[Rfam]
RNA: mir-184 microRNA precursor family
RNA sequence: CACUUUCCCUUAUCAGUUUUCCAGCCAGCUUUGUGACUGUAAAUGUUGGACGGAGAACUGAUAAGGGUAAGUGACUG
Numbered sequence: 001c002a003c004u005u006u007c008c009c010u011u012a013u014c015a016g017u018u019u020u021c022c023a024g025c026c027a028g029c030u031u032u033g034u035g036a037c038u039g040u041a042a043a044u045g046u047u048g049g050a051c052g053g054a055g056a057a058c059u060g061a062u063a064a065g066g067g068u069a070a071g072u073g074a075c076u077g
Stems, first nucleotide, its partner, number of pairs: 007067009017057006025049002